[Rfam]
Nucleotides: 178
Stems, first nucleotide, its partner, number of pairs: 026039003041084010058074005086177007
Number, partner (000 for none) and nucleotide at each position: 001000c002000g003000c004000u005000u006000c007000g008000u009000c010000a011000u012000u013000a014000g015000g016000g017000a018000g019000u020000a021000g022000c023000c024000g025000c026039u027038u028037c029000g030000g031000u032000u033000u034000a035000c036000c037028g038027a039026a040000g041084a042083u043082c044081a045080g046079c047078g048077u049076c050075a051000a052000c053000a054000u055000a056000c057000u058074u059073g060072a061071c062070c063000u064000a065000c066000a067000c068000a069000g070062g071061g072060u073059c074058a075050u076049g077048g078047c079046g080045c081044u082043g083042a084041u085000a086177g087176c088175a089174a090173c091172u092171u093000a094000g095000c096000c097000u098000g099000g100000c101000a102000a103000g104000a105000c106000u107000u108000u109000u110000g111000a112000c113000c114000a115000u116000g117000g118000a119000c120000c121000u122000u123000c124000g125000c126000g127000u128000u129000u130000g131000g132000c133000c134000g135000g136000g137000a138000g139000g140000g141000u142000u143000u144000g145000u146000g147000g148000u149000c150000a151000u152000c153000u154000g155000u156000c157000u158000c159000u160000u161000a162000u163000c164000c165000g166000g167000c168000c169000a170000g171092g172091a173090g174089u175088u176087g177086u178000u

Background:
The family of this 178-nucleotide RNA from Alcaligenes sp. EGD-AK7 is "Manganese Mn2+ riboswitch aptamer (yybP-ykoY)". The base pairs follow the family's consensus structure. Rfam's curators write: This RNA was originally discovered in E. coli during a large scale screen and was named SraF. The family was later found to exist upstream of related families of protein genes in many bacteria, including the the yybP and ykoK genes in B. subtilis.